[Rfam]
RNA sequence: CAGAAUGUGGCCGGCGGUUUUCACCCUGAUCUGAGAGCCACGGCCAUCUGAGAUCAUUGUGAAAGCUACUCGCCGCAUUCGU
Dot-bracket structure: ........(((....(((((((((..((((((.(((((....))..))).))))))..)))))))))....)))........
Numbered sequence: 001c002a003g004a005a006u007g008u009g010g011c012c013g014g015c016g017g018u019u020u021u022c023a024c025c026c027u028g029a030u031c032u033g034a035g036a037g038c039c040a041c042g043g044c045c046a047u048c049u050g051a052g053a054u055c056a057u058u059g060u061g062a063a064a065g066c067u068a069c070u071c072g073c074c075g076c077a078u079u080c081g082u
Stems, first nucleotide, its partner, number of pairs: 009074003016067009027056006034049003037044002
Notes
The record is an 82-nucleotide RNA sequence from Mesorhabditis spiculigera, which matches "mir-81 microRNA precursor family" in Rfam. The literature on the family includes a 2001 paper in Science by Lau et al., "An abundant class of tiny RNAs with probable regulatory roles in Caenorhabditis elegans". Rfam 15.1 lists 68 matches to the family in 54 species. Rfam links the family to the GO terms miRNA-mediated post-transcriptional gene silencing and RISC complex. It scores 59 bits against the family's covariance model.